[Rfam]
RNA sequence: UGUUAAAAAUUCUAUCCAUUUAUACUUUUAAAAGUUGGUCAUUGUACGUCUAAGGUACACAUGGCACACGACAUACCACUAUCUGGUUAUUCUGUCAACCACACUAGUUUUUAACAGUACAAAUGGACGAAAUUUUUAACA
Numbered sequence: 001u002g003u004u005a006a007a008a009a010u011u012c013u014a015u016c017c018a019u020u021u022a023u024a025c026u027u028u029u030a031a032a033a034g035u036u037g038g039u040c041a042u043u044g045u046a047c048g049u050c051u052a053a054g055g056u057a058c059a060c061a062u063g064g065c066a067c068a069c070g071a072c073a074u075a076c077c078a079c080u081a082u083c084u085g086g087u088u089a090u091u092c093u094g095u096c097a098a099c100c101a102c103a104c105u106a107g108u109u110u111u112u113a114a115c116a117g118u119a120c121a122a123a124u125g126g127a128c129g130a131a132a133u134u135u136u137u138a139a140c141a
Base pairs, nucleotide, nucleotide: 002140003139004138005137006136007135008134009133010132011131013129015127016126018124019123020122021121023119024118025117026116028114029113030112031111032110033109